[Rfam]
RNA sequence: CGGAACUCCGAAGAGUGGUCGUGUCUGAAAGACGCGGCCCGCCGAAGGAGCAAGUCGGGGCGGGCAUGGUGCCAGCCUUGGCGAAUCUCUCAGGUUCGAUACGGGAGGGGGCACG
Numbered sequence: 001c002g003g004a005a006c007u008c009c010g011a012a013g014a015g016u017g018g019u020c021g022u023g024u025c026u027g028a029a030a031g032a033c034g035c036g037g038c039c040c041g042c043c044g045a046a047g048g049a050g051c052a053a054g055u056c057g058g059g060g061c062g063g064g065c066a067u068g069g070u071g072c073c074a075g076c077c078u079u080g081g082c083g084a085a086u087c088u089c090u091c092a093g094g095u096u097c098g099a100u101a102c103g104g105g106a107g108g109g110g111g112c113a114c115g
Base pairs, nucleotide, nucleotide: 006107007106008105009103010102017039018038019037020036021035022034023033024032025031041095042094043093044091045090048089049088050087054082055081056080057079058078059077060076061075

The family of this 115-nucleotide sequence from Notoacmeibacter marinus is "Glycine riboswitch aptamer".
The organism belongs to Notoacmeibacter, within Bacteria.